RNA: Glycine riboswitch aptamer
RNA sequence: AUCGAGAACUCUGAAACGCAGGGCCACAGCCCUCGCCGAUGGUGUAAGUCGAGGUCCGCUACCCGGGCCCGAUGAUGCUCUCAGGCCAAUGACAGAGGGCGCUUU
Number, nucleotide and partner (000 for none) at each position: 001a000002u000003c000004g000005a000006g100007a000008a000009c097010u096011c095012u094013g093014a000015a000016a000017c000018g000019c000020a033021g032022g031023g030024c000025c000026a000027c000028a000029g000030c023031c022032c021033u020034c000035g086036c085037c084038g082039a081040u000041g000042g080043u000044g078045u000046a000047a000048g073049u072050c071051g070052a000053g000054g000055u000056c000057c000058g000059c000060u000061a000062c000063c000064c000065g000066g000067g000068c000069c000070c051071g050072a049073u048074g000075a000076u000077g000078c044079u000080c042081u039082c038083a000084g037085g036086c035087c000088a000089a000090u000091g000092a000093c013094a012095g011096a010097g009098g000099g000100c006101g000102c000103u000104u000105u000